[Rfam]
RNA sequence: UAUGUCCGCUGGGGGAGCCUGAAAAGGCUGAGACGGCAGAAAUGCCGAACCCUUGGAACCUGAUGAGGGUAAUGCCUCCGUAGGGAAUGCGGGCUCAAAAGGCA
Numbered sequence: 001u002a003u004g005u006c007c008g009c010u011g012g013g014g015g016a017g018c019c020u021g022a023a024a025a026g027g028c029u030g031a032g033a034c035g036g037c038a039g040a041a042a043u044g045c046c047g048a049a050c051c052c053u054u055g056g057a058a059c060c061u062g063a064u065g066a067g068g069g070u071a072a073u074g075c076c077u078c079c080g081u082a083g084g085g086a087a088u089g090c091g092g093g094c095u096c097a098a099a100a101g102g103c104a
Base pairs, nucleotide, nucleotide: 006092007091008090009089011053012052013051014050017028018027019026020025035046036045037044038043059084060083061082062081065078066077067076068075
RNA: TPP riboswitch aptamer (THI element)